This 82-nucleotide RNA from Danio rerio belongs to the Rfam family "Small nucleolar RNA MBII-202". The family's consensus secondary structure was predicted with PFOLD. Lineage of the source: Eukaryota > Vertebrata > Clupeocephala > Ostariophysi > Danio. Rfam 15.1 lists 745 matches to the family in 452 species. It scores 62 bits against the family's covariance model.
[Rfam]
RNA sequence: UGAUGACAAUUCUCCGGAAUCUCUGUACUUCCUUGAUGAUCCACUUUGAACCCUUUUUGCUGAUGACUGUAUUUGACUCGUG
Numbered sequence: 001u002g003a004u005g006a007c008a009a010u011u012c013u014c015c016g017g018a019a020u021c022u023c024u025g026u027a028c029u030u031c032c033u034u035g036a037u038g039a040u041c042c043a044c045u046u047u048g049a050a051c052c053c054u055u056u057u058u059g060c061u062g063a064u065g066a067c068u069g070u071a072u073u074u075g076a077c078u079c080g081u082g
Stems, first nucleotide, its partner, number of pairs: 003081004
A reference for the family is Huttenhofer et al. (2001), "RNomics: an experimental approach that identifies 201 candidates for novel, small, non-messenger RNAs in mouse", EMBO J. The family's RNA type in Rfam is C/D-box small nucleolar RNA.